[Rfam]
RNA sequence: UGCAGGCAAGCGCGAGGAUAACCCUAGGCCAUGUGCAUUCAUGGCAGCCCGAAUGGGUGGGAUCCUAGGUCUCGGGGCCUGCUCUUUC
Numbered sequence: 001u002g003c004a005g006g007c008a009a010g011c012g013c014g015a016g017g018a019u020a021a022c023c024c025u026a027g028g029c030c031a032u033g034u035g036c037a038u039u040c041a042u043g044g045c046a047g048c049c050c051g052a053a054u055g056g057g058u059g060g061g062a063u064c065c066u067a068g069g070u071c072u073c074g075g076g077g078c079c080u081g082c083u084c085u086u087u088c
Base pairs, nucleotide, nucleotide: 002082003081004080005079006078007077011075013074014073015072016071023069024068025067026066027065028045029044030043031042032041033040048057049056050055
RNA: DUF3800-VII RNA